[Rfam]
RNA sequence: UCAUAACGGGUCUGUGGUUGAAAGUCGAUGCCAGAUGCAGGCAAAGCGAUCCACGUAAGCAUUUCAUUGAAAUGUGAUCAUGGUGCAUCUUAGAUGUAAGACCUGCCGGGAGACCGAGAGGCUGAGUAGUGGGGGCCAUUGGCUAGGAGCGAAAUGUCCAGCAGGCGAGUGUGGGGGCAAAAACCAGGUCAGCCGUUGCGC
Numbered sequence: 001u002c003a004u005a006a007c008g009g010g011u012c013u014g015u016g017g018u019u020g021a022a023a024g025u026c027g028a029u030g031c032c033a034g035a036u037g038c039a040g041g042c043a044a045a046g047c048g049a050u051c052c053a054c055g056u057a058a059g060c061a062u063u064u065c066a067u068u069g070a071a072a073u074g075u076g077a078u079c080a081u082g083g084u085g086c087a088u089c090u091u092a093g094a095u096g097u098a099a100g101a102c103c104u105g106c107c108g109g110g111a112g113a114c115c116g117a118g119a120g121g122c123u124g125a126g127u128a129g130u131g132g133g134g135g136c137c138a139u140u141g142g143c144u145a146g147g148a149g150c151g152a153a154a155u156g157u158c159c160a161g162c163a164g165g166c167g168a169g170u171g172u173g174g175g176g177g178c179a180a181a182a183a184c185c186a187g188g189u190c191a192g193c194c195g196u197u198g199c200g201c
Stems, first nucleotide, its partner, number of pairs: 002200001004198006012192003015186005028172003031041001033090007050083002055078001058075001062071003081179001102165005107116003120158003129150002135143003
Shown here is a 201-nucleotide sequence, a member of the family "raiA RNA". It is one of the family's seed sequences.